[Rfam]
A member of the RNA family "gabT RNA" from Stutzerimonas stutzeri, 60 nucleotides long.

RNA sequence: GAACGCCUGGAGGGUGCGCAGUCGAUCAUCGUAUGCUGCGGCGCUUGGUUCCUGACGUUC
Numbered sequence: 001g002a003a004c005g006c007c008u009g010g011a012g013g014g015u016g017c018g019c020a021g022u023c024g025a026u027c028a029u030c031g032u033a034u035g036c037u038g039c040g041g042c043g044c045u046u047g048g049u050u051c052c053u054g055a056c057g058u059u060c
Stems, first nucleotide, its partner, number of pairs: 001060005012046006018039005023031002